This 146-nucleotide RNA sequence from Zea mays belongs to the Rfam family "Small nucleolar RNA snoR136".
[Rfam]
RNA sequence: UUUGUGCCGCUUCACUUGGUUCAUGCCCAUGAGCUGUUUUUGGCUCACGAGCUUUGGAAAGGUGAAGCAAAAGUCUCAGUGGUUCCUCUCGCUAUCCAGGGCAGAAUUUUUUGUUUGAUGCUGCUGGACGUCGAGGAACUAUAUUC
Numbered sequence: 001u002u003u004g005u006g007c008c009g010c011u012u013c014a015c016u017u018g019g020u021u022c023a024u025g026c027c028c029a030u031g032a033g034c035u036g037u038u039u040u041u042g043g044c045u046c047a048c049g050a051g052c053u054u055u056g057g058a059a060a061g062g063u064g065a066a067g068c069a070a071a072a073g074u075c076u077c078a079g080u081g082g083u084u085c086c087u088c089u090c091g092c093u094a095u096c097c098a099g100g101g102c103a104g105a106a107u108u109u110u111u112u113g114u115u116u117g118a119u120g121c122u123g124c125u126g127g128a129c130g131u132c133g134a135g136g137a138a139c140u141a142u143a144u145u146c
Stems, first nucleotide, its partner, number of pairs: 001072002003069003008064003011060002015057002018054002025052002028049001030047006082139007090130002095128005104116003

The literature on the family includes a 2009 paper in Nucleic Acids Res by Chen and Wu, "Mining small RNA sequencing data: a new approach to identify small nucleolar RNAs in Arabidopsis".
The family's RNA type in Rfam is H/ACA-box small nucleolar RNA.
NCBI's taxonomy places the organism under Eukaryota, Streptophyta, Liliopsida, Panicoideae, Zea.
Rfam links the family to the GO terms RNA processing and nucleolus.
It scores 49 bits against the family's covariance model.